[Rfam]
RNA sequence: AUGUACUACUUGUACAUUCCGGUUCCUGCGCUGCUCUUCACCCCGCUGAGGGCCGCUCGUGACAGAUCCUGAACA
Numbered sequence: 001a002u003g004u005a006c007u008a009c010u011u012g013u014a015c016a017u018u019c020c021g022g023u024u025c026c027u028g029c030g031c032u033g034c035u036c037u038u039c040a041c042c043c044c045g046c047u048g049a050g051g052g053c054c055g056c057u058c059g060u061g062a063c064a065g066a067u068c069c070u071g072a073a074c075a
Stems, first nucleotide, its partner, number of pairs: 002016005020033004047072001049070004
Rfam assigns this 75-nucleotide RNA from Pseudogulbenkiania sp. NH8B to the family "Xanthomonas sRNA sX9". The family's consensus secondary structure was predicted with RNAalifold. NCBI's taxonomy places the organism under Bacteria, Pseudomonadota, Betaproteobacteria, Chromobacteriaceae, Pseudogulbenkiania. A search with the family's covariance model found it, with a score of 45 bits. By type it is a small RNA.